[Rfam]
RNA sequence: UCUUUGUCAAUGAUGUUAUCAGUACAAAUGUCUGAACAUAUGAAUUUCUGUGAUUCUUAUUUGUUUUUACUGAGACAAAGA
Number, nucleotide and partner (000 for none) at each position: 001u000002c080003u079004u078005u077006g076007u075008c074009a000010a000011u000012g000013a000014u000015g000016u000017u000018a000019u000020c000021a000022g000023u000024a000025c000026a000027a000028a000029u000030g000031u000032c000033u000034g000035a000036a000037c000038a000039u000040a000041u000042g000043a000044a000045u000046u000047u000048c000049u000050g000051u000052g000053a000054u000055u000056c000057u000058u000059a000060u000061u000062u000063g000064u000065u000066u000067u000068u000069a000070c000071u000072g000073a000074g008075a007076c006077a005078a004079a003080g002081a000
This 81-nucleotide RNA sequence from Salvelinus namaycush belongs to the Rfam family "Small nucleolar RNA SNORD72". Pairs were carried over by alignment from the consensus structure. About the family: snoRNA HBII-240 belongs to the CD family of snoRNAs. It is the human orthologue of the mouse MBII-240 and is predicted to guide 2'O-ribose methylation of the large 28S rRNA at residue U4590. The family has 16 seed sequences and 726 matches in Rfam 15.1. The family's RNA type in Rfam is C/D-box small nucleolar RNA. The match comes from Rfam's covariance-model search (56 bits).